Notes
This 105-nucleotide sequence from Chenggangzhangella methanolivorans belongs to the Rfam family "Guanidine-I riboswitch aptamer". This family represents a conserved RNA structure found upstream of the ykkC and yxkD genes in Bacillus subtilis and related genes in other bacteria. The function of this family is unclear although it has been suggested that it may function to switch on efflux pumps and detoxification systems in response to harmful environmental molecules. Rfam links the family to the GO term regulation of gene expression. Taxonomically the source falls in Chenggangzhangella (Bacteria, Pseudomonadati, Pseudomonadota, Methylopilaceae). The base pairs follow the family's consensus structure.
RNA sequence: GUGCAGAGCGUCUAGGGUUCCGGCCGCCAUCCCCGGCGGCGCUGGUCCGAGAGACGCGCUUCCGGGAGAGCCGGAGGUACACGGCGGGGCAAAAUCCCGGGAGGU
Numbered sequence: 001g002u003g004c005a006g007a008g009c010g011u012c013u014a015g016g017g018u019u020c021c022g023g024c025c026g027c028c029a030u031c032c033c034c035g036g037c038g039g040c041g042c043u044g045g046u047c048c049g050a051g052a053g054a055c056g057c058g059c060u061u062c063c064g065g066g067a068g069a070g071c072c073g074g075a076g077g078u079a080c081a082c083g084g085c086g087g088g089g090c091a092a093a094a095u096c097c098c099g100g101g102a103g104g105u
Base pairs, nucleotide, nucleotide: 008057009056010055011054012053015048016047020045021044022042023040024039025038026037027036028035058078059077060076061075062074063073064072065071080100082103086098087097088096